[Rfam]
RNA sequence: ACCGGCAAGGAUGACGCGCACUUGCCCUCACUUAGACCGUAGUUCUUUGAUGAGAGCACUCGAUUGUUCUGAGCCGGA
Numbered sequence: 001a002c003c004g005g006c007a008a009g010g011a012u013g014a015c016g017c018g019c020a021c022u023u024g025c026c027c028u029c030a031c032u033u034a035g036a037c038c039g040u041a042g043u044u045c046u047u048u049g050a051u052g053a054g055a056g057c058a059c060u061c062g063a064u065u066g067u068u069c070u071g072a073g074c075c076g077g078a
Base pairs, nucleotide, nucleotide: 002077003076004075005074006073